[Rfam]
RNA sequence: UUCUUAUCCAGAGAGGUGGAGGGACUGGCCCGAUGAAACCCAGCAACCGCGAUGCAGGUGCUAAUUCCAGCAGAACAAAUUUGUUCUGGGAGAUAAGAC
Numbered sequence: 001u002u003c004u005u006a007u008c009c010a011g012a013g014a015g016g017u018g019g020a021g022g023g024a025c026u027g028g029c030c031c032g033a034u035g036a037a038a039c040c041c042a043g044c045a046a047c048c049g050c051g052a053u054g055c056a057g058g059u060g061c062u063a064a065u066u067c068c069a070g071c072a073g074a075a076c077a078a079a080u081u082u083g084u085u086c087u088g089g090g091a092g093a094u095a096a097g098a099c
Base pairs, nucleotide, nucleotide: 002098003097004096005095006094007093008092013041015040016039017038021031022030023029025070026069027068028067042062043061044060045059047058048057049055050054066091071088072087073086074085075084076083
RNA: SAM riboswitch aptamer (S box leader)